The record is a 48-nucleotide RNA from Streptomyces solincola, which matches "raiA-hairpin RNA" in Rfam. The source organism's lineage runs through Bacteria, Bacillati, Actinomycetes, Kitasatosporales and Streptomyces. It scores 55 bits against the family's covariance model. The family's consensus secondary structure is taken from published work.
[Rfam]
RNA sequence: CGCCAAGUCCAUGACUCCGGCGCUCACCGGGGUCUGGUGCAAGAGGAA
Numbered sequence: 001c002g003c004c005a006a007g008u009c010c011a012u013g014a015c016u017c018c019g020g021c022g023c024u025c026a027c028c029g030g031g032g033u034c035u036g037g038u039g040c041a042a043g044a045g046g047a048a
Stems, first nucleotide, its partner, number of pairs: 013034008